[Rfam]
RNA sequence: CGGCGAGGCUUUCCUGUCCGUUAUACCUGGAGGCACUCGGCCAUGCAGUGGGAGGACUUCCCUCCUUAGACGCAUGUCGUCAAUUGCAUGGUGUGAGGGCGGGUUAGAUGCCCA
Numbered sequence: 001c002g003g004c005g006a007g008g009c010u011u012u013c014c015u016g017u018c019c020g021u022u023a024u025a026c027c028u029g030g031a032g033g034c035a036c037u038c039g040g041c042c043a044u045g046c047a048g049u050g051g052g053a054g055g056a057c058u059u060c061c062c063u064c065c066u067u068a069g070a071c072g073c074a075u076g077u078c079g080u081c082a083a084u085u086g087c088a089u090g091g092u093g094u095g096a097g098g099g100c101g102g103g104u105u106a107g108a109u110g111c112c113c114a
Stems, first nucleotide, its partner, number of pairs: 001020003008034006036097004040092008050066006069081004101113004